[Rfam]
Background
The family of this 75-nucleotide sequence from Myotis davidii is "mir-9229 microRNA precursor family". The base pairs follow the family's consensus structure, which was predicted with RNAalifold.
RNA sequence: GAGACACCCUUAUGGGGCAGGAUUGCAUCAGUGGGGUUUUGCUGCUCACUGAGCCUGCCCCUUGAGUGUGUCACU
Numbered sequence: 001g002a003g004a005c006a007c008c009c010u011u012a013u014g015g016g017g018c019a020g021g022a023u024u025g026c027a028u029c030a031g032u033g034g035g036g037u038u039u040u041g042c043u044g045c046u047c048a049c050u051g052a053g054c055c056u057g058c059c060c061c062u063u064g065a066g067u068g069u070g071u072c073a074c075u
Base pairs, nucleotide, nucleotide: 001074003072004071005070006069007068009066010065011064012063014061015060016059017058018057019056020055021054028052029051030050031049032048033047034046035045036043